[Rfam]
The family of this 110-nucleotide sequence from Lathyrus oleraceus is "MIR162_1 microRNA precursor family". A search with the family's covariance model found it, with a score of 109 bits.

RNA sequence: GGUGAAGUCACUGGAGGCAGCGGUUCAUCGAUCUGUUCCUGAAUUUGGUUGUGUAAUUAUAUCACAAAGCAAGAAUCGGUCGAUAAACCUCUGCAUCCAGCGUUCACUUU
Numbered sequence: 001g002g003u004g005a006a007g008u009c010a011c012u013g014g015a016g017g018c019a020g021c022g023g024u025u026c027a028u029c030g031a032u033c034u035g036u037u038c039c040u041g042a043a044u045u046u047g048g049u050u051g052u053g054u055a056a057u058u059a060u061a062u063c064a065c066a067a068a069g070c071a072a073g074a075a076u077c078g079g080u081c082g083a084u085a086a087a088c089c090u091c092u093g094c095a096u097c098c099a100g101c102g103u104u105c106a107c108u109u110u
Stems, first nucleotide, its partner, number of pairs: 013098003018093003022089004027084007036075003
The organism belongs to Lathyrus, within Eukaryota.
A reference for the family is Reinhart et al. (2002), "MicroRNAs in plants", Genes Dev.
The base pairs follow the family's consensus structure, which was predicted with RNAalifold.